Rfam assigns this 38-nucleotide sequence from Aliikangiella coralliicola to the family "JUMPstart RNA". The organism belongs to Aliikangiella, within Bacteria. It scores 39 bits against the family's covariance model. The family's RNA type in Rfam is cis-regulatory element.
[Rfam]
RNA sequence: AGGUACUUUGAGAGCCAUAACUUAAGGGCGGUAGCGUG
Numbered sequence: 001a002g003g004u005a006c007u008u009u010g011a012g013a014g015c016c017a018u019a020a021c022u023u024a025a026g027g028g029c030g031g032u033a034g035c036g037u038g
Stems, first nucleotide, its partner, number of pairs: 008025005
Dot-bracket structure: .......(((((........))))).............